A member of the RNA family "Small nucleolar RNA SNORD112" from Gulo gulo, 77 nucleotides long. A reference for the family is Cavaille et al. (2002), "Identification of tandemly-repeated C/D snoRNA genes at the imprinted human 14q32 domain reminiscent of those at the Prader-Willi/Angelman syndrome region", Hum Mol Genet. The family's consensus secondary structure was predicted with WAR. Its Rfam clan is "SNORD74 clan". Rfam classes the family as a C/D-box small nucleolar RNA. NCBI's taxonomy places the organism under Eukaryota, Bilateria, Deuterostomia, Eutheria, Gulo.
RNA sequence: UGGACCAACGAUGACGAAGUGAUUAUGAACAAAGGCUCAUGAUUAAUCCAGUUCUGUGCGAAAUACUGAGGUCCAUU
Numbered sequence: 001u002g003g004a005c006c007a008a009c010g011a012u013g014a015c016g017a018a019g020u021g022a023u024u025a026u027g028a029a030c031a032a033a034g035g036c037u038c039a040u041g042a043u044u045a046a047u048c049c050a051g052u053u054c055u056g057u058g059c060g061a062a063a064u065a066c067u068g069a070g071g072u073c074c075a076u077u
Stems, first nucleotide, its partner, number of pairs: 001075006